[Rfam]
Small nucleolar RNA SNORA8: a 136-nucleotide RNA sequence from Cyprinodon variegatus. About the family: ACA8 is a member of the H/ACA class of snoRNA that guide the sites of modification of uridines to pseudouridines.
RNA sequence: AGCACUGUGGUAUCUGCAGCCAGCAUGUUUCAUCAGCUGGCUGUUUAAAUGACUGUGCAAGAGAAAUUCAGCAUAAGGCAUUGUUGGUCUCCCUGCUGCUCAUGUUUGGAGUCCUGGUAUAAUGUCUGAAACAAGC
Numbered sequence: 001a002g003c004a005c006u007g008u009g010g011u012a013u014c015u016g017c018a019g020c021c022a023g024c025a026u027g028u029u030u031c032a033u034c035a036g037c038u039g040g041c042u043g044u045u046u047a048a049a050u051g052a053c054u055g056u057g058c059a060a061g062a063g064a065a066a067u068u069c070a071g072c073a074u075a076a077g078g079c080a081u082u083g084u085u086g087g088u089c090u091c092c093c094u095g096c097u098g099c100u101c102a103u104g105u106u107u108g109g110a111g112u113c114c115u116g117g118u119a120u121a122a123u124g125u126c127u128g129a130a131a132c133a134a135g136c
Base pairs, nucleotide, nucleotide: 002058003057004056005055007053013051015049016044017043018042019041020040021039022038023037024036061125063123066120067119068117069116070115071114077106078105079104080103081102